[Rfam]
RNA: Selenocysteine transfer RNA
Organism: Saccharopolyspora phatthalungensis
RNA sequence: GGAGACGUAUGGGCGCCUGGUGGCCCCCUCGGCCUUCAAAGCCGGUGGCACCGAGUACCUCGGUGCGGCGGGUUCGAUUCCCGUCCGUCUCC
Number, nucleotide and partner (000 for none) at each position: 001g092002g091003a090004g089005a088006c087007g086008u000009a084010u000011g000012g027013g026014c000015g024016c023017c022018u000019g000020g000021u000022g017023g016024c015025c000026c013027c012028c000029u045030c044031g043032g042033c041034c000035u000036u000037c000038a000039a000040a000041g033042c032043c031044g030045g029046u000047g000048g066049c065050a064051c063052c062053g000054a000055g000056u000057a000058c000059c000060u000061c000062g052063g051064u050065g049066c048067g000068g000069c083070g082071g081072g080073u000074u000075c000076g000077a000078u000079u000080c072081c071082c070083g069084u009085c000086c007087g006088u005089c004090u003091c002092c001